[Rfam]
RNA: Burkholderia RNA 7 (anti-hemB)
Organism: Sideroxydans lithotrophicus
RNA sequence: UUCCCGUUUCUCCUCCCUGAGCGGGUGUCUUUACCCUGUAAAGACCUUCUGCCCCUGACCUCCCCCUUUGGUUCAGGGGCAUUUUUUU
Numbered sequence: 001u002u003c004c005c006g007u008u009u010c011u012c013c014u015c016c017c018u019g020a021g022c023g024g025g026u027g028u029c030u031u032u033a034c035c036c037u038g039u040a041a042a043g044a045c046c047u048u049c050u051g052c053c054c055c056u057g058a059c060c061u062c063c064c065c066c067u068u069u070g071g072u073u074c075a076g077g078g079g080c081a082u083u084u085u086u087u088u
Base pairs, nucleotide, nucleotide: 003025004024005023006022007021008020027045028044029043030042031041032040033039051080052079053078054077055076056075057074058073